A member of the RNA family "MIR8024 microRNA precursor family" from Solanum lycopersicum, 86 nucleotides long. Rfam links the family to the GO terms miRNA-mediated post-transcriptional gene silencing and RISC complex. Taxonomically the source falls in Solanum subgen. Lycopersicon (Eukaryota, Streptophyta, Solaneae, Solanum). A search with the family's covariance model found it, with a score of 70 bits. The family has 2 seed sequences and 661 matches in Rfam 15.1.
[Rfam]
Nucleotides: 086
Base pairs, nucleotide, nucleotide: 001084002083004081005080006079009076010075011074012073013072014071018067019066020065021064025059026058027057032053033052034051035050036049037048
Number, partner (000 for none) and nucleotide at each position: 001084c002083u003000c004081g005080a006079a007000g008000a009076u010075u011074u012073g013072a014071a015000g016000a017000c018067u019066u020065c021064a022000a023000u024000u025059u026058g027057u028000a029000g030000a031000c032053u033052u034051g035050g036049a037048g038000u039000a040000u041000u042000u043000g044000a045000a046000g047000a048037c049036u050035u051034c052033a053032a054000a055000u056000g057027a058026c059025a060000g061000g062000a063000u064021u065020g066019a067018a068000c069000a070000a071014u072013u073012u074011g075010a076009a077000g078000a079006u080005u081004u082000c083002a084001g085000c086000u